pan motif: an 87-nucleotide RNA from Clostridium uliginosum. It scores 56 bits against the family's covariance model. The source organism's lineage runs through Bacteria, Clostridia, Eubacteriales, Clostridiaceae and Clostridium.
RNA sequence: UGGGUGGUAUCUUAUGGAGCCUCACCAGAAAUUUUAAAGCAUUAAAAAUAUAUAACAACUCAUAUCUAUAAUGAAUGAGAUUGAAAU
Numbered sequence: 001u002g003g004g005u006g007g008u009a010u011c012u013u014a015u016g017g018a019g020c021c022u023c024a025c026c027a028g029a030a031a032u033u034u035u036a037a038a039g040c041a042u043u044a045a046a047a048a049u050a051u052a053u054a055a056c057a058a059c060u061c062a063u064a065u066c067u068a069u070a071a072u073g074a075a076u077g078a079g080a081u082u083g084a085a086a087u
Stems, first nucleotide, its partner, number of pairs: 001027003004023001006021003010018002056083003059079005065074002